[Rfam]
RNA sequence: UGGUAGAUGCACCCUGAUAAGUCCCACUGGCGAGAGCCAGGGGAUUUUUUU
Numbered sequence: 001u002g003g004u005a006g007a008u009g010c011a012c013c014c015u016g017a018u019a020a021g022u023c024c025c026a027c028u029g030g031c032g033a034g035a036g037c038c039a040g041g042g043g044a045u046u047u048u049u050u051u
Stems, first nucleotide, its partner, number of pairs: 002013003024043002027040005

Shown here is a 51-nucleotide RNA sequence from Nodosilinea sp. LEGE 07088, a member of the family "Nitrogen stress-induced RNA 1". Pairs were carried over by alignment from the consensus structure. It is annotated as a small RNA.